Record summary:
mir-96 microRNA precursor family: a 78-nucleotide RNA from Dryobates pubescens. A search with the family's covariance model found it, with a score of 80 bits. The source organism's lineage runs through Eukaryota, Eumetazoa, Sauropsida, Saurischia and Dryobates. Rfam links the family to the GO terms miRNA-mediated post-transcriptional gene silencing and RISC complex.
RNA sequence: UGGCCCCUUUUGGCACUAGCACAUUUUUGCUUUGAUUGGUAGCUGCUGAGCAAUUAUGUGUAGUGCCAAUAUGGGAGG
Numbered sequence: 001u002g003g004c005c006c007c008u009u010u011u012g013g014c015a016c017u018a019g020c021a022c023a024u025u026u027u028u029g030c031u032u033u034g035a036u037u038g039g040u041a042g043c044u045g046c047u048g049a050g051c052a053a054u055u056a057u058g059u060g061u062a063g064u065g066c067c068a069a070u071a072u073g074g075g076a077g078g
Stems, first nucleotide, its partner, number of pairs: 004075003008071001010069008019061006027053006